[Rfam]
RNA sequence: GUGCCGGGACGACCCGGCGCGCACCAUUAACCCCGUGAGGACGACCUCA
Numbered sequence: 001g002u003g004c005c006g007g008g009a010c011g012a013c014c015c016g017g018c019g020c021g022c023a024c025c026a027u028u029a030a031c032c033c034c035g036u037g038a039g040g041a042c043g044a045c046c047u048c049a
Stems, first nucleotide, its partner, number of pairs: 001020008036049005
The family of this 49-nucleotide RNA sequence from Tahibacter soli is "Guanidine-II riboswitch aptamer (mini-ykkC)".
Simpler in structure and has fewer highly conserved nucleotide positions than the ykkC-yxkD leader.